The record is a 103-nucleotide RNA sequence from Lathyrus oleraceus, which matches "Small nucleolar RNA Z279/snoR105/snoR108" in Rfam.

RNA sequence: GAGAUAUGAUGAGUGGUCUAGUCUCGCAUUAAAUAUAUGAGUUGGGUGUCUGUCCCAAGCCUGAUACGGCAAUUGGGCACUCUCCGUUGACCAAUCUGAUCUC
Numbered sequence: 001g002a003g004a005u006a007u008g009a010u011g012a013g014u015g016g017u018c019u020a021g022u023c024u025c026g027c028a029u030u031a032a033a034u035a036u037a038u039g040a041g042u043u044g045g046g047u048g049u050c051u052g053u054c055c056c057a058a059g060c061c062u063g064a065u066a067c068g069g070c071a072a073u074u075g076g077g078c079a080c081u082c083u084c085c086g087u088u089g090a091c092c093a094a095u096c097u098g099a100u101c102u103c
Stems, first nucleotide, its partner, number of pairs: 001103004014093005023041004044082007062075004
The source organism's lineage runs through Eukaryota, Euphyllophyta, eudicotyledons, Fabeae and Lathyrus. This family includes the plant snoRNAs known as Z279, snoR105 and snoR108. The base pairs follow the family's consensus structure, which was predicted with PFOLD.